[Rfam]
RNA sequence: UUUAAAUGCAACCAACCCAACUUUAAUUGUUUGUCUUAUUUGAAUUAUUUUUAUAAUUAGUAUUUUUAUUGCUAUAAGACAAUAAAAUCUGAUUAGUACUUUAUGCGUGACUUAUGUUCUCGAAUUUUUUUAAAACAUUUUUAAAUAAGACGAACGGUCAAAAUUUGGCAUAGAAAAUCAUGGCAGCACUUAUA
Numbered sequence: 001u002u003u004a005a006a007u008g009c010a011a012c013c014a015a016c017c018c019a020a021c022u023u024u025a026a027u028u029g030u031u032u033g034u035c036u037u038a039u040u041u042g043a044a045u046u047a048u049u050u051u052u053a054u055a056a057u058u059a060g061u062a063u064u065u066u067u068a069u070u071g072c073u074a075u076a077a078g079a080c081a082a083u084a085a086a087a088u089c090u091g092a093u094u095a096g097u098a099c100u101u102u103a104u105g106c107g108u109g110a111c112u113u114a115u116g117u118u119c120u121c122g123a124a125u126u127u128u129u130u131u132a133a134a135a136c137a138u139u140u141u142u143a144a145a146u147a148a149g150a151c152g153a154a155c156g157g158u159c160a161a162a163a164u165u166u167g168g169c170a171u172a173g174a175a176a177a178u179c180a181u182g183g184c185a186g187c188a189c190u191u192a193u194a
Stems, first nucleotide, its partner, number of pairs: 016168002019165002022162003026158014
Rfam assigns this 194-nucleotide sequence from Oryza barthii to the family "MIR812 microRNA precursor family".